Overview: The record is a 90-nucleotide RNA sequence from Microtus ochrogaster, which matches "mir-3547 microRNA precursor family" in Rfam.
RNA sequence: GUGGGCAGAGGGGUGGGGCCCGGGACUUGAACCUAUGUGGGGACUAUUUCUGAAUCCCUACGCUUGUUCUGAGCACCACCCCUCUCUCAG
Numbered sequence: 001g002u003g004g005g006c007a008g009a010g011g012g013g014u015g016g017g018g019c020c021c022g023g024g025a026c027u028u029g030a031a032c033c034u035a036u037g038u039g040g041g042g043a044c045u046a047u048u049u050c051u052g053a054a055u056c057c058c059u060a061c062g063c064u065u066g067u068u069c070u071g072a073g074c075a076c077c078a079c080c081c082c083u084c085u086c087u088c089a090g
Stems, first nucleotide, its partner, number of pairs: 002089004008084009018074002021071006037061003041057003045053001
Dot-bracket structure: .((((..(((((((((.((.((((((..........(((.(((.(.......).))).)))....)))))).)).))))))))).)))).
A search with the family's covariance model found it, with a score of 80 bits. Gene Ontology terms of the family: RISC complex and miRNA-mediated post-transcriptional gene silencing. The source organism's lineage runs through Eukaryota, Craniata, Teleostomi, Euteleostomi and Microtus.